[Rfam]
RNA sequence: UGGUCAUUACCAAGGCUUUUAGAAUGCAGUUUCUGAUUUGCUGUGGACUUGACCAUAAAAAAACUUCCCACUAGGUUUUGUCUUUGCUACUUUGGUAGCACUAAACCAAUUGGGAACAUUU
Numbered sequence: 001u002g003g004u005c006a007u008u009a010c011c012a013a014g015g016c017u018u019u020u021a022g023a024a025u026g027c028a029g030u031u032u033c034u035g036a037u038u039u040g041c042u043g044u045g046g047a048c049u050u051g052a053c054c055a056u057a058a059a060a061a062a063a064c065u066u067c068c069c070a071c072u073a074g075g076u077u078u079u080g081u082c083u084u085u086g087c088u089a090c091u092u093u094g095g096u097a098g099c100a101c102u103a104a105a106c107c108a109a110u111u112g113g114g115a116a117c118a119u120u121u
Base pairs, nucleotide, nucleotide: 003053004052005051006050010046011045012044026041027040028039029038067114068113069112070111074107075106076105077104085100086099087098
RNA: Small nucleolar RNA SNORA32
Organism: Orycteropus afer